[Rfam]
This 96-nucleotide sequence from Nicotiana tabacum belongs to the Rfam family "MIR6152 microRNA precursor family".
Its family is annotated with miRNA-mediated post-transcriptional gene silencing and RISC complex in the Gene Ontology.
Lineage of the source: Eukaryota > Viridiplantae > Spermatophyta > lamiids > Nicotiana.

RNA sequence: UAGACAAAUUAUUAUAUUCGACUGUAUUCACGGCGUGAAACAUGAGAUUACACUAUUUUCAAACGGAAAGUGAAUCAAUUAACAUAAUAAACUCCU
Numbered sequence: 001u002a003g004a005c006a007a008a009u010u011a012u013u014a015u016a017u018u019c020g021a022c023u024g025u026a027u028u029c030a031c032g033g034c035g036u037g038a039a040a041c042a043u044g045a046g047a048u049u050a051c052a053c054u055a056u057u058u059u060c061a062a063a064c065g066g067a068a069a070g071u072g073a074a075u076c077a078a079u080u081a082a083c084a085u086a087a088u089a090a091a092c093u094c095c096u
Stems, first nucleotide, its partner, number of pairs: 003094002009090007017082002020080002023077002026075006034065003037059004042054001